Nucleotides: 129
Base pairs, nucleotide, nucleotide: 001056002055003054004053005052006051014043015042016041017039018038020036022034023033024032068121069120070119071118073116074115078111079110080109081108086103087102088101
Number, partner (000 for none) and nucleotide at each position: 001056g002055c003054a004053g005052a006051c007000u008000c009000a010000c011000u012000c013000u014043g015042u016041a017039c018038a019000u020036g021000a022034c023033u024032g025000c026000c027000u028000u029000c030000c031000u032024c033023a034022g035000u036020c037000u038018u039017g040000c041016u042015g043014c044000u045000u046000u047000u048000c049000c050000a051006g052005u053004c054003u055002g056001c057000u058000a059000g060000a061000g062000a063000a064000g065000u066000g067000a068121c069120c070119c071118a072000u073116g074115c075000u076000a077000c078111u079110g080109c081108a082000a083000a084000c085000a086103c087102c088101u089000u090000u091000c092000u093000c094000u095000g096000g097000u098000g099000a100000a101088a102087g103086g104000c105000c106000a107000u108081u109080g110079c111078a112000u113000c114000u115074g116073c117000u118071u119070g120069g121068g122000a123000a124000a125000c126000a127000u128000c129000c
Rfam assigns this 129-nucleotide RNA sequence from Phascolarctos cinereus to the family "Small nucleolar RNA SNORA77". For this family Rfam cites "A computational screen for mammalian pseudouridylation guide H/ACA RNAs" (Schattner et al., RNA, 2006). The base pairs follow the family's consensus structure, which was predicted with RNAalifold. Gene Ontology terms of the family: RNA processing and nucleolus. Rfam 15.1 lists 843 matches to the family in 607 species. The match comes from Rfam's covariance-model search (51 bits).